[Rfam]
RNA sequence: GUUUGUUGUGAUAAGGACAAACAAGGUCCCUCUUCUGAAGACAUUGAGGAUGCUUGCUAGCAGAAUCGAACCAAUAAACCUAUUGCCGCCACUGAGUAA
Numbered sequence: 001g002u003u004u005g006u007u008g009u010g011a012u013a014a015g016g017a018c019a020a021a022c023a024a025g026g027u028c029c030c031u032c033u034u035c036u037g038a039a040g041a042c043a044u045u046g047a048g049g050a051u052g053c054u055u056g057c058u059a060g061c062a063g064a065a066u067c068g069a070a071c072c073a074a075u076a077a078a079c080c081u082a083u084u085g086c087c088g089c090c091a092c093u094g095a096g097u098a099a
Stems, first nucleotide, its partner, number of pairs: 006099004
A member of the RNA family "Small nucleolar RNA R30/Z108" from Panicum virgatum, 99 nucleotides long. Clan: SNORD100 clan. The literature on the family includes a 2002 paper in Curr Biol by Marker et al., "Experimental RNomics. Identification of 140 Candidates for Small Non-Messenger RNAs in the Plant Arabidopsis thaliana". It scores 78 bits against the family's covariance model. About the family: snoR30 is a C/D box small nucleolar RNA which acts as a methylation guide for 18S ribosomal RNA in plants. The family's RNA type in Rfam is C/D-box small nucleolar RNA. Lineage of the source: Eukaryota > Spermatophyta > commelinids > Poaceae > Panicum sect. Hiantes.